SAH (S-adenosyl-L-homocysteine) riboswitch aptamer: an 80-nucleotide RNA from Sterolibacterium denitrificans.
Pairs were carried over by alignment from the consensus structure, which is taken from published work.
The literature on the family includes a 2008 paper in Mol Cell by Wang et al., "Riboswitches that sense S-adenosylhomocysteine and activate genes involved in coenzyme recycling".
A search with the family's covariance model found it, with a score of 57 bits.

RNA sequence: CUUACCGAGGAGCGCUGCGAGGCCGGAUGCACCGUCCGCCCCAGGCUCGGUAGAUGGACUGAGAACGGCGCUCGCCUGAA
Numbered sequence: 001c002u003u004a005c006c007g008a009g010g011a012g013c014g015c016u017g018c019g020a021g022g023c024c025g026g027a028u029g030c031a032c033c034g035u036c037c038g039c040c041c042c043a044g045g046c047u048c049g050g051u052a053g054a055u056g057g058a059c060u061g062a063g064a065a066c067g068g069c070g071c072u073c074g075c076c077u078g079a080a
Base pairs, nucleotide, nucleotide: 002053003052004051005050006049007048008047021040022039023038025036026035